[Rfam]
RNA sequence: AAUGCAGAGAUUGUGUGUAUCGGCUUAGUGCGAUGUAAUGCGCUUUGUACGAAAGAUUUCUCUGCGACAUUAAUUUGGGGCAGAUGGGCAGUUGUGAUUCAAUGUCAAUUGAAUAGCUCAACAAUCAUCUUCCCCACAAUU
Numbered sequence: 001a002a003u004g005c006a007g008a009g010a011u012u013g014u015g016u017g018u019a020u021c022g023g024c025u026u027a028g029u030g031c032g033a034u035g036u037a038a039u040g041c042g043c044u045u046u047g048u049a050c051g052a053a054a055g056a057u058u059u060c061u062c063u064g065c066g067a068c069a070u071u072a073a074u075u076u077g078g079g080g081c082a083g084a085u086g087g088g089c090a091g092u093u094g095u096g097a098u099u100c101a102a103u104g105u106c107a108a109u110u111g112a113a114u115a116g117c118u119c120a121a122c123a124a125u126c127a128u129c130u131u132c133c134c135c136a137c138a139a140u141u
Base pairs, nucleotide, nucleotide: 004065005064006063007062008061009060010059015043016042017041018040019039020038077135078134079133080132082130083129084128085127086126087125091122092121093120094119
Rfam assigns this 141-nucleotide RNA sequence to the family "small nucleolar RNA snoR135".